[Rfam]
RNA sequence: CAUGUUGAUUGUACUUCAUCAGGUGCUCUGGUAGAUCGUAAACCCGGCACCUGUUGGAGCGCAAUUCAUAUG
Number, nucleotide and partner (000 for none) at each position: 001c072002a071003u070004g069005u000006u000007g000008a000009u000010u063011g062012u061013a000014c059015u058016u057017c056018a055019u000020c053021a052022g000023g050024u049025g048026c047027u046028c000029u000030g044031g043032u000033a000034g000035a000036u000037c000038g000039u000040a000041a000042a000043c031044c030045c000046g027047g026048c025049a024050c023051c000052u021053g020054u000055u018056g017057g016058a015059g014060c000061g012062c011063a010064a000065u000066u000067c000068a000069u004070a003071u002072g001

A member of the RNA family "mir-305 microRNA precursor family" from Cotesia congregata, 72 nucleotides long. Its family is annotated with miRNA-mediated post-transcriptional gene silencing and RISC complex in the Gene Ontology. It scores 81 bits against the family's covariance model. Pairs were carried over by alignment from the consensus structure, which was predicted with RNAalifold.